[Rfam]
RNA sequence: CGCUCUCAUGGGGAGAGCUUAUGCAGCACCCACUGCGUAGCGACUAGAACUCGCUCUUAUAAGGAGAAAACAAAUG
Number, nucleotide and partner (000 for none) at each position: 001c000002g018003c017004u016005c015006u014007c000008a000009u000010g000011g000012g000013g000014a006015g005016a004017g003018c002019u000020u039021a038022u037023g036024c035025a034026g033027c000028a000029c000030c000031c000032a000033c026034u025035g024036c023037g022038u021039a020040g054041c053042g052043a051044c000045u000046a000047g000048a000049a000050c000051u043052c042053g041054c040055u000056c000057u000058u000059a000060u000061a000062a000063g000064g000065a000066g000067a000068a000069a000070a000071c000072a000073a000074a000075u000076g000
Shown here is a 76-nucleotide RNA sequence, a member of the family "freshwater-2 RNA". The base pairs follow the family's consensus structure, which is taken from published work. Rfam classes the family as a cis-regulatory element. It is one of the family's seed sequences.